Rfam assigns this 86-nucleotide RNA sequence from Clostridium gasigenes to the family "c-di-GMP-I riboswitch aptamer".
[Rfam]
RNA sequence: UAAAACAAUGGGCAAAUUUAGAGAAAUCUAGAGGCGCAAAGCUAAAGGGGCUAAGGGAUUUAAAACUAUGCCAGCCAGUUGCUAAA
Numbered sequence: 001u002a003a004a005a006c007a008a009u010g011g012g013c014a015a016a017u018u019u020a021g022a023g024a025a026a027u028c029u030a031g032a033g034g035c036g037c038a039a040a041g042c043u044a045a046a047g048g049g050g051c052u053a054a055g056g057g058a059u060u061u062a063a064a065a066c067u068a069u070g071c072c073a074g075c076c077a078g079u080u081g082c083u084a085a086a
Base pairs, nucleotide, nucleotide: 012037013036017032018031019030020029021028022027040080041079042078043077047076048075049072050071051070056066059063

It scores 70 bits against the family's covariance model.
Rfam links the family to the GO term cyclic-di-GMP binding.
GEMM was predicted in a large-scale screen for bacterial structured RNA regulatory elements.